Rfam assigns this 121-nucleotide RNA from Streptomyces coryli to the family "Streptomyces-metK RNA". Pairs were carried over by alignment from the consensus structure, which is taken from published work. The source organism's lineage runs through Bacteria, Actinomycetota, Kitasatosporales, Streptomycetaceae and Streptomyces. A search with the family's covariance model found it, with a score of 62 bits.

[Rfam]
RNA sequence: UCGAGACGUGGUUGUGGCCACGGGGAUUCCGGCAGAUAAACUGUGCCCGGAUCGGCCUCGGGGGAGCUCUCCCGGGAUACGGUCCACUAUUGAUAGCCAGCAGCCGCUGCAACCCAGGGAG
Numbered sequence: 001u002c003g004a005g006a007c008g009u010g011g012u013u014g015u016g017g018c019c020a021c022g023g024g025g026a027u028u029c030c031g032g033c034a035g036a037u038a039a040a041c042u043g044u045g046c047c048c049g050g051a052u053c054g055g056c057c058u059c060g061g062g063g064g065a066g067c068u069c070u071c072c073c074g075g076g077a078u079a080c081g082g083u084c085c086a087c088u089a090u091u092g093a094u095a096g097c098c099a100g101c102a103g104c105c106g107c108u109g110c111a112a113c114c115c116a117g118g119g120a121g
Stems, first nucleotide, its partner, number of pairs: 049085006057076005098109004